[Rfam]
RNA sequence: CUGCACUCGUAUAAAGGCUAUGCUAAAAUUAUUAAAAUAGCGCAGCCUUGAAGCGAUAGUGCAAAGAUGAAAUGCUGAUUUUAAUUAGUGGCGGCCAGACAACCGUUGAGAUGAAUCCACAGAUUAGUUCCUUUUAUGGUACUUGUCUACUAAUUUCAUCUCACAAUG
Numbered sequence: 001c002u003g004c005a006c007u008c009g010u011a012u013a014a015a016g017g018c019u020a021u022g023c024u025a026a027a028a029u030u031a032u033u034a035a036a037a038u039a040g041c042g043c044a045g046c047c048u049u050g051a052a053g054c055g056a057u058a059g060u061g062c063a064a065a066g067a068u069g070a071a072a073u074g075c076u077g078a079u080u081u082u083a084a085u086u087a088g089u090g091g092c093g094g095c096c097a098g099a100c101a102a103c104c105g106u107u108g109a110g111a112u113g114a115a116u117c118c119a120c121a122g123a124u125u126a127g128u129u130c131c132u133u134u135u136a137u138g139g140u141a142c143u144u145g146u147c148u149a150c151u152a153a154u155u156u157c158a159u160c161u162c163a164c165a166a167u168g
Stems, first nucleotide, its partner, number of pairs: 002063005008055003012051001014049003017041005024034002108162008125145003129141001131139001
A member of the RNA family "small nucleolar RNA snoR143" from Anisodus acutangulus, 168 nucleotides long.
A reference for the family is Chen and Wu (2009), "Mining small RNA sequencing data: a new approach to identify small nucleolar RNAs in Arabidopsis", Nucleic Acids Res.
The family's RNA type in Rfam is H/ACA-box small nucleolar RNA.
Taxonomically the source falls in Anisodus (Eukaryota, Spermatophyta, lamiids, Hyoscyameae).
Pairs were carried over by alignment from the consensus structure, which was predicted with RNAalifold.
It scores 126 bits against the family's covariance model.